[Rfam]
RNA sequence: GUAAAAAUUAAAUAUUAUUCUCGUAUAAUAUUGGGGAUAUGGCCCGAAAGUUUCUACCAAGCUGCCGUAAAUAGCUUGACUACGAGGUUGUGUAUAUUAUGU
Numbered sequence: 001g002u003a004a005a006a007a008u009u010a011a012a013u014a015u016u017a018u019u020c021u022c023g024u025a026u027a028a029u030a031u032u033g034g035g036g037a038u039a040u041g042g043c044c045c046g047a048a049a050g051u052u053u054c055u056a057c058c059a060a061g062c063u064g065c066c067g068u069a070a071a072u073a074g075c076u077u078g079a080c081u082a083c084g085a086g087g088u089u090g091u092g093u094a095u096a097u098u099a100u101g102u
Stems, first nucleotide, its partner, number of pairs: 019087007029049001031047005058078007

Rfam assigns this 102-nucleotide RNA from Bacillus sp. FJAT-18017 to the family "Purine riboswitch aptamer".
The family has 133 seed sequences and 4,097 matches in Rfam 15.1.